RNA: Small nucleolar RNA SNORA55
Organism: Callorhinchus milii
RNA sequence: GCACUUUGCUCUCAGUCGUUCUGCUGUGUGGUGCGGAGCGCGGAGGGCAGAGGUGCCACAGUAAAGCGGAGUAAAUCCAGAUGGGUUUCCUGUACGAUGGGACCCGUCUCUACAGCUUUGCAACAAAU
Dot-bracket structure: (((((.......(..((((.((..............)).))))..).....))))).........((((((.......((((((((..((........)).))))))))......)))))).......